A member of the RNA family "MIR8565 microRNA precursor family" from Amborella trichopoda, 154 nucleotides long. NCBI's taxonomy places the organism under Eukaryota, Viridiplantae, Streptophytina, Euphyllophyta, Amborella.
[Rfam]
RNA sequence: CCCCCAUCCAUGUGUGUAGGACCUCAAAAGAUCACCAUUAAAUUUGCUACGGAUCUUUAAAAAAGUUAUCACAUGAAGGUAAGACUUAAUUUUUUUAUAGAUCCGUAUCGAAUUUAAUGGUGAUCCUUUGAGGUCCUAUACACAUGGAUGGGAG
Number, nucleotide and partner (000 for none) at each position: 001c000002c000003c152004c151005c150006a149007u148008c147009c146010a145011u144012g143013u142014g000015u140016g139017u138018a137019g136020g135021a134022c133023c132024u131025c130026a129027a128028a127029a000030g125031a124032u123033c000034a121035c120036c119037a118038u117039u116040a115041a114042a113043u112044u111045u110046g109047c000048u107049a106050c105051g104052g103053a102054u101055c100056u099057u000058u097059a096060a095061a094062a093063a092064a091065g090066u089067u088068a087069u082070c000071a080072c079073a000074u000075g000076a000077a000078g000079g072080u071081a000082a069083g000084a000085c000086u000087u068088a067089a066090u065091u064092u063093u062094u061095u060096u059097a058098u000099a056100g055101a054102u053103c052104c051105g050106u049107a048108u000109c046110g045111a044112a043113u042114u041115u040116a039117a038118u037119g036120g035121u034122g000123a032124u031125c030126c000127u028128u027129u026130g025131a024132g023133g022134u021135c020136c019137u018138a017139u016140a015141c000142a013143c012144a011145u010146g009147g008148a007149u006150g005151g004152g003153a000154g000